This 28-nucleotide RNA sequence from Delphinapterus leucas belongs to the Rfam family "Iron response element I". A search with the family's covariance model found it, with a score of 37 bits. Rfam 15.1 lists 6,829 matches to the family in 599 species.
RNA sequence: UUCUUGCUUCAACAGUGCUUGGAUGGAA
Numbered sequence: 001u002u003c004u005u006g007c008u009u010c011a012a013c014a015g016u017g018c019u020u021g022g023a024u025g026g027a028a
Stems, first nucleotide, its partner, number of pairs: 001028004006024001008023005013017001